Purine riboswitch aptamer: a 102-nucleotide RNA sequence from Paenibacillus stellifer. The family's consensus secondary structure is taken from published work.
RNA sequence: UCUAACACGAAAAGUCUUUCUUGUAUAAGCGCGUUGAUCGGAACGGGCGUUUCUACAGGCAACCGUAAAUUGCCCCAGGCUACAAGAGGCUGUACAGACCCG
Numbered sequence: 001u002c003u004a005a006c007a008c009g010a011a012a013a014g015u016c017u018u019u020c021u022u023g024u025a026u027a028a029g030c031g032c033g034u035u036g037a038u039c040g041g042a043a044c045g046g047g048c049g050u051u052u053c054u055a056c057a058g059g060c061a062a063c064c065g066u067a068a069a070u071u072g073c074c075c076c077a078g079g080c081u082a083c084a085a086g087a088g089g090c091u092g093u094a095c096a097g098a099c100c101c102g
Stems, first nucleotide, its partner, number of pairs: 018088008029048002032045004058074005